The record is a 62-nucleotide sequence from Equus caballus, which matches "U7 small nuclear RNA" in Rfam. A search with the family's covariance model found it, with a score of 57 bits.
[Rfam]
Nucleotides: 062
Stems, first nucleotide, its partner, number of pairs: 034059011
Number, partner (000 for none) and nucleotide at each position: 001000a002000a003000g004000u005000g006000u007000u008000a009000c010000a011000g012000c013000u014000c015000u016000u017000u018000u019000a020000g021000a022000g023000u024000u025000u026000g027000u028000c029000u030000g031000g032000c033000a034059g035058g036057u037056u038055u039054u040053c041052u042051g043050g044049u045000c046000c047000u048000c049044a050043c051042u052041g053040g054039a055038a056037g057036g058035u059034c060000u061000c062000c